[Rfam]
RNA sequence: CGCUAAAAACAUACCAGGUUUCGUAUAUCUUUGGAGAUAUGGUCCAAAAGUUUCUACCAAACUACCACAAAUGGUUUGACUACGAUGACAAUUCUGGAAAUA
Number, nucleotide and partner (000 for none) at each position: 001c000002g000003c000004u000005a000006a000007a000008a000009a000010c000011a000012u000013a000014c000015c000016a000017g000018g000019u087020u000021u085022c084023g083024u082025a081026u000027a000028u000029c000030u048031u047032u046033g045034g044035a043036g000037a000038u000039a000040u000041g000042g000043u035044c034045c033046a032047a031048a030049a000050g000051u000052u000053u000054c000055u000056a000057c000058c078059a077060a076061a075062c074063u073064a072065c000066c000067a000068c000069a000070a000071a000072u064073g063074g062075u061076u060077u059078g058079a000080c000081u025082a024083c023084g022085a021086u000087g019088a000089c000090a000091a000092u000093u000094c000095u000096g000097g000098a000099a000100a000101u000102a000
Purine riboswitch aptamer: a 102-nucleotide RNA sequence from Guptibacillus hwajinpoensis.
A search with the family's covariance model found it, with a score of 75 bits.